A member of the RNA family "Small nucleolar RNA Me28S-Cm3227" from Drosophila persimilis, 81 nucleotides long. Its family is annotated with RNA processing and nucleolus in the Gene Ontology. A reference for the family is Huang et al. (2005), "Genome-wide analyses of two families of snoRNA genes from Drosophila melanogaster, demonstrating the extensive utilization of introns for coding of snoRNAs", RNA. The base pairs follow the family's consensus structure.
RNA sequence: UGUAUCUGAUGAUAAGUUCAAUCUGAACAAAGUGCUGUUGAUUUUCAACUUAAAACUAAACCAAAAGGAUUCUGAAAAACA
Numbered sequence: 001u002g003u004a005u006c007u008g009a010u011g012a013u014a015a016g017u018u019c020a021a022u023c024u025g026a027a028c029a030a031a032g033u034g035c036u037g038u039u040g041a042u043u044u045u046c047a048a049c050u051u052a053a054a055a056c057u058a059a060a061c062c063a064a065a066a067g068g069a070u071u072c073u074g075a076a077a078a079a080c081a
Base pairs, nucleotide, nucleotide: 001081002080003079005078